Rfam assigns this 239-nucleotide RNA from Amborella trichopoda to the family "MIR8562 microRNA precursor family".

[Rfam]
RNA sequence: UUUUCUACGAAUCAGAAUGACCUAAAAUUUGGAGCGUGUGUUCAUAAAAAACAGGCAAAUCUAAAAAAACUAUAAAAAAAAUAAUUUACAUGAAAAAAUUGACCAAAAUACCCCCAAAACGUUUUGGGGGUAUUUUGGUCAAUUUCUUUGGUGAAUUAUUUUUUGUAUAUUUUUAUUAGGUGCACCUCACUAAGAUGUACACACGCUCGAAAUUUUAGGUCAUUGUGAUUUGUAGAAAA
Numbered sequence: 001u002u003u004u005c006u007a008c009g010a011a012u013c014a015g016a017a018u019g020a021c022c023u024a025a026a027a028u029u030u031g032g033a034g035c036g037u038g039u040g041u042u043c044a045u046a047a048a049a050a051a052c053a054g055g056c057a058a059a060u061c062u063a064a065a066a067a068a069a070c071u072a073u074a075a076a077a078a079a080a081a082u083a084a085u086u087u088a089c090a091u092g093a094a095a096a097a098a099u100u101g102a103c104c105a106a107a108a109u110a111c112c113c114c115c116a117a118a119a120c121g122u123u124u125u126g127g128g129g130g131u132a133u134u135u136u137g138g139u140c141a142a143u144u145u146c147u148u149u150g151g152u153g154a155a156u157u158a159u160u161u162u163u164u165g166u167a168u169a170u171u172u173u174u175a176u177u178a179g180g181u182g183c184a185c186c187u188c189a190c191u192a193a194g195a196u197g198u199a200c201a202c203a204c205g206c207u208c209g210a211a212a213u214u215u216u217a218g219g220u221c222a223u224u225g226u227g228a229u230u231u232g233u234a235g236a237a238a239a
Base pairs, nucleotide, nucleotide: 001239002238003237004236005235006234007233008232009231010230011229012228013227014226016224017223018222019221020220021219022218023217024216025215026214027213028212029211030210032208033207034206036204037203038202039201040200041199043197044196045195061179062178063177064176066174067173068172069171071169072168073167076164077163078162079161080160096145097144098143099142100141101140102139103138104137105136106135107134108133109132110131111130112129113128116123117122
Pairs were carried over by alignment from the consensus structure, which was predicted with RNAalifold.